[Rfam]
Rfam assigns this 47-nucleotide RNA sequence from Bordetella hinzii to the family "Guanidine-II riboswitch aptamer (mini-ykkC)". Rfam links the family to the GO term regulation of gene expression. The base pairs follow the family's consensus structure, which is taken from published work. The match comes from Rfam's covariance-model search (38 bits). Taxonomically the source falls in Bordetella (Bacteria, Pseudomonadati, Pseudomonadota, Betaproteobacteria). Rfam 15.1 lists 1,589 matches to the family in 1,229 species.
RNA sequence: GCCCUGGGACGACCCGGGGUCCAACGCUACAUCCGGGGACGGCCCCC
Numbered sequence: 001g002c003c004c005u006g007g008g009a010c011g012a013c014c015c016g017g018g019g020u021c022c023a024a025c026g027c028u029a030c031a032u033c034c035g036g037g038g039a040c041g042g043c044c045c046c047c
Stems, first nucleotide, its partner, number of pairs: 001020008035046004